[Rfam]
RNA sequence: GGAUGUCUUCAGGGCAGGGUGACUUUAAGUGAAUCUCACUUUUAGAAUUCCCGAUCGGCGGUAUAGUCCGCGAGCGUGUAAGCGCAGGUGCUUUCGGGCACAGGAUUUGGUGAAAUUCCAAAACCGACAGUAUAGUCUGGAUGGAAGAAGGCGUGU
Numbered sequence: 001g002g003a004u005g006u007c008u009u010c011a012g013g014g015c016a017g018g019g020u021g022a023c024u025u026u027a028a029g030u031g032a033a034u035c036u037c038a039c040u041u042u043u044a045g046a047a048u049u050c051c052c053g054a055u056c057g058g059c060g061g062u063a064u065a066g067u068c069c070g071c072g073a074g075c076g077u078g079u080a081a082g083c084g085c086a087g088g089u090g091c092u093u094u095c096g097g098g099c100a101c102a103g104g105a106u107u108u109g110g111u112g113a114a115a116u117u118c119c120a121a122a123a124c125c126g127a128c129a130g131u132a133u134a135g136u137c138u139g140g141a142u143g144g145a146a147g148a149a150g151g152c153g154u155g156u
Base pairs, nucleotide, nucleotide: 003154004153005152006151007150008149009148010147017052018051019050054136055135056126057125058071059070060069061068066124067123106122107121108120109119110118128139129138130137
Record summary
A member of the RNA family "FMN riboswitch aptamer (RFN element)" from Diplocloster agilis, 156 nucleotides long. Pairs were carried over by alignment from the consensus structure, which is taken from published work. A search with the family's covariance model found it, with a score of 95 bits.